Description: The record is an 81-nucleotide RNA from Pseudomonas oryzihabitans, which matches "Pseudomonas sRNA P31" in Rfam. The family's consensus secondary structure was predicted with CMfinder. The literature on the family includes a 2006 paper in Nucleic Acids Res by Livny et al., "Identification of 17 Pseudomonas aeruginosa sRNAs and prediction of sRNA-encoding genes in 10 diverse pathogens using the bioinformatic tool sRNAPredict2". It is annotated as a small RNA.
[Rfam]
Nucleotides: 081
Base pairs, nucleotide, nucleotide: 005043007041008040009039021032022031023030024029052081053080054079055078058075059074060073061072063070
Number, partner (000 for none) and nucleotide at each position: 001000a002000g003000a004000a005043g006000a007041c008040c009039u010000c011000c012000g013000a014000a015000a016000a017000u018000c019000a020000a021032g022031c023030c024029u025000u026000g027000g028000c029024g030023g031022g032021c033000a034000a035000a036000c037000g038000c039009a040008g041007g042000g043005u044000g045000c046000a047000a048000a049000a050000a051000a052081a053080c054079g055078g056000g057000a058075u059074g060073a061072c062000a063070u064000c065000u066000c067000g068000a069000a070063g071000a072061g073060u074059c075058a076000u077000c078055c079054c080053g081052u